Overview
This 167-nucleotide RNA sequence from Durio zibethinus belongs to the Rfam family "MIR530 microRNA precursor family". Lineage of the source: Eukaryota > Spermatophyta > Gunneridae > Malvales > Durio. On this family, see Lu et al., Plant J 2008: "Stress-responsive microRNAs in Populus".
RNA sequence: GCCAAGAUGUAGCCUUUAUCUGCAUUUGCACCUGCACCUUCUUGUUUUUAUUUGGUUCAGCUUCAGAAACCAAAGCAUGGCAGAUGUGUUUGUGGUAGUGGAGGAAAAUAGGAGUAGCAACAACGCAAAGAGGUGCAGGUUCAGGUGCAGGUGAAUGCCAUUUUGGC
Numbered sequence: 001g002c003c004a005a006g007a008u009g010u011a012g013c014c015u016u017u018a019u020c021u022g023c024a025u026u027u028g029c030a031c032c033u034g035c036a037c038c039u040u041c042u043u044g045u046u047u048u049u050a051u052u053u054g055g056u057u058c059a060g061c062u063u064c065a066g067a068a069a070c071c072a073a074a075g076c077a078u079g080g081c082a083g084a085u086g087u088g089u090u091u092g093u094g095g096u097a098g099u100g101g102a103g104g105a106a107a108a109u110a111g112g113a114g115u116a117g118c119a120a121c122a123a124c125g126c127a128a129a130g131a132g133g134u135g136c137a138g139g140u141u142c143a144g145g146u147g148c149a150g151g152u153g154a155a156u157g158c159c160a161u162u163u164u165g166g167c
Stems, first nucleotide, its partner, number of pairs: 001167009012158002015155014030140010051074005056068003060064001